[Rfam]
RNA sequence: UGCUGUGAUAUGAUGAUUUUUUUUGUUUAAAAACAUUGGGAAUCUCUCUGAAUAAGAGUGAAGGAGAACUUUUUUCUGAUGCGGCA
Numbered sequence: 001u002g003c004u005g006u007g008a009u010a011u012g013a014u015g016a017u018u019u020u021u022u023u024u025g026u027u028u029a030a031a032a033a034c035a036u037u038g039g040g041a042a043u044c045u046c047u048c049u050g051a052a053u054a055a056g057a058g059u060g061a062a063g064g065a066g067a068a069c070u071u072u073u074u075u076c077u078g079a080u081g082c083g084g085c086a
Base pairs, nucleotide, nucleotide: 001086002085003084004083005082006081007080
RNA: Small nucleolar RNA SNORD79